[Rfam]
RNA sequence: UUUGAGGCUGUAAACAUCCCCGACUGGAAGCUGUCACUCAGCAGAGCUUUCAGUCUGAUGUUUACCCCCUCCGA
Numbered sequence: 001u002u003u004g005a006g007g008c009u010g011u012a013a014a015c016a017u018c019c020c021c022g023a024c025u026g027g028a029a030g031c032u033g034u035c036a037c038u039c040a041g042c043a044g045a046g047c048u049u050u051c052a053g054u055c056u057g058a059u060g061u062u063u064a065c066c067c068c069c070u071c072c073g074a
Stems, first nucleotide, its partner, number of pairs: 002073001004071003010065009023054010
The family of this 74-nucleotide sequence from Tetraodon nigroviridis is "mir-30 microRNA precursor family". Taxonomically the source falls in Tetraodon (Eukaryota, Opisthokonta, Deuterostomia, Gnathostomata). Rfam's curators put it in the seed alignment. For this family Rfam cites "Identification of novel genes coding for small expressed RNAs" (Lagos-Quintana et al., Science, 2001). Pairs were carried over by alignment from the consensus structure, which was predicted with PFOLD.